[Rfam]
RNA sequence: UAUUCCCGGCUGGAUUGGACCUUUGCUGGUUUUCACCUCGGUUAUACUUCAAGUGUGAUUAUCACCGGGUGAACAUUGGUGCAGGUCCAAUCCUGCAAC
Dot-bracket structure: ...............(((((((.(((((((.((((((.(.((.(((.............))).)).))))))).))))))).)))))))..........
Shown here is a 99-nucleotide RNA from Caenorhabditis remanei, a member of the family "mir-36 microRNA precursor family". The match comes from Rfam's covariance-model search (64 bits). Clan: mir-36 clan. The literature on the family includes a 2009 paper in Genome Biol by Kato et al., "Dynamic expression of small non-coding RNAs, including novel microRNAs and piRNAs/21U-RNAs, during Caenorhabditis elegans development". Rfam 15.1 lists 199 matches to the family in 31 species.